[Rfam]
Background: The family of this 132-nucleotide sequence from Geotrypetes seraphini is "U8 small nucleolar RNA". It scores 92 bits against the family's covariance model. The family's RNA type in Rfam is C/D-box small nucleolar RNA. The organism belongs to Geotrypetes, within Eukaryota.
RNA sequence: UCGUCAGUGAGGUAUAUCCUUACCUGUUCCUCCUCCGGGAGAAGCAGAAUAUGAUGAACGGAGAGGGCUGAGUGCGUGAUUAUAGCCUCCCUACUUUGGGGCUUCGCAACACCCCAAAGCUUCCGAUCUGAU
Numbered sequence: 001u002c003g004u005c006a007g008u009g010a011g012g013u014a015u016a017u018c019c020u021u022a023c024c025u026g027u028u029c030c031u032c033c034u035c036c037g038g039g040a041g042a043a044g045c046a047g048a049a050u051a052u053g054a055u056g057a058a059c060g061g062a063g064a065g066g067g068c069u070g071a072g073u074g075c076g077u078g079a080u081u082a083u084a085g086c087c088u089c090c091c092u093a094c095u096u097u098g099g100g101g102c103u104u105c106g107c108a109a110c111a112c113c114c115c116a117a118a119g120c121u122u123c124c125g126a127u128c129u130g131a132u
Stems, first nucleotide, its partner, number of pairs: 024047003028043001030041004072088001074086002077082001093121001095119003099115003
Dot-bracket structure: .......................(((.(.((((....)))).).)))........................(.((.(....)..)).)....(.(((.(((...........))).))).)...........